[Rfam]
RNA: PyrR binding site
Organism: Caldibacillus thermoamylovorans
RNA sequence: AGCACCUUUAAAUCAGUCCAGAGAGUCUGAGAAGGGAACGGAUUAUUUUUUAAAAAAGAAACAGUUUAUUCUCCUGCCCUCUUUGGCAGGAGUUUUUUAUU
Dot-bracket structure: ....(((((...((((.(......).))))))))).....((((.((((((....)))))).)))).(..((((((((......))))))))..)......
Numbered sequence: 001a002g003c004a005c006c007u008u009u010a011a012a013u014c015a016g017u018c019c020a021g022a023g024a025g026u027c028u029g030a031g032a033a034g035g036g037a038a039c040g041g042a043u044u045a046u047u048u049u050u051u052a053a054a055a056a057a058g059a060a061a062c063a064g065u066u067u068a069u070u071c072u073c074c075u076g077c078c079c080u081c082u083u084u085g086g087c088a089g090g091a092g093u094u095u096u097u098u099a100u101u
Stems, first nucleotide, its partner, number of pairs: 005035005013030004018025001041066004046061006068095001071092008